The record is a 250-nucleotide part of an RNA from Haladaptatus paucihalophilus, which matches "Archaeal large subunit ribosomal RNA" in Rfam. Pairs were carried over by alignment from the consensus structure, which is taken from published work.

RNA sequence: GAUACUUGACGAGAACGUUCGUAUAGUACGAGAGGAACUACGAAUGGGUGCCACUGGUGUACCGGUCGUCCGAGAGGGCGCGUGCCGGGCAGCUACGCACCACGGGGUAAGAGCUGAACGCAUCUAAGCUCGAAACCCACUUGGAAAAGAAGUAUCACCGAGAUCACUCGUAGAAGACGAGUUCGAUAGGCUCGGGAUGUACGCGCCGAGGCAACGAGGCGUUCAGUCCGCGAGUACUAACAGAUCGACG
Numbered sequence: 001g002a003u004a005c006u007u008g009a010c011g012a013g014a015a016c017g018u019u020c021g022u023a024u025a026g027u028a029c030g031a032g033a034g035g036a037a038c039u040a041c042g043a044a045u046g047g048g049u050g051c052c053a054c055u056g057g058u059g060u061a062c063c064g065g066u067c068g069u070c071c072g073a074g075a076g077g078g079c080g081c082g083u084g085c086c087g088g089g090c091a092g093c094u095a096c097g098c099a100c101c102a103c104g105g106g107g108u109a110a111g112a113g114c115u116g117a118a119c120g121c122a123u124c125u126a127a128g129c130u131c132g133a134a135a136c137c138c139a140c141u142u143g144g145a146a147a148a149g150a151a152g153u154a155u156c157a158c159c160g161a162g163a164u165c166a167c168u169c170g171u172a173g174a175a176g177a178c179g180a181g182u183u184c185g186a187u188a189g190g191c192u193c194g195g196g197a198u199g200u201a202c203g204c205g206c207c208g209a210g211g212c213a214a215c216g217a218g219g220c221g222u223u224c225a226g227u228c229c230g231c232g233a234g235u236a237c238u239a240a241c242a243g244a245u246c247g248a249c250g
Stems, first nucleotide, its partner, number of pairs: 001156007010143004016046008047101005055095003062088005067080005104138003111131005162246004166182005187239003190235005195229003203222005210215001